[Rfam]
RNA sequence: AUGAGUAAGCCAUAAAGCUCAGGAGGGAUAGCGCCAUGGAUGGUGCAUGUUUCUUCCGAUUUACAUGUCUCGGUGGCGCUAUCCAUCCUGAGUUUCAUGGUCUUUAUUG
Numbered sequence: 001a002u003g004a005g006u007a008a009g010c011c012a013u014a015a016a017g018c019u020c021a022g023g024a025g026g027g028a029u030a031g032c033g034c035c036a037u038g039g040a041u042g043g044u045g046c047a048u049g050u051u052u053c054u055u056c057c058g059a060u061u062u063a064c065a066u067g068u069c070u071c072g073g074u075g076g077c078g079c080u081a082u083c084c085a086u087c088c089u090g091a092g093u094u095u096c097a098u099g100g101u102c103u104u105u106a107u108u109g
Stems, first nucleotide, its partner, number of pairs: 010100001016094009026084010
RNA: MIR390 microRNA precursor family
Organism: Dorcoceras hygrometricum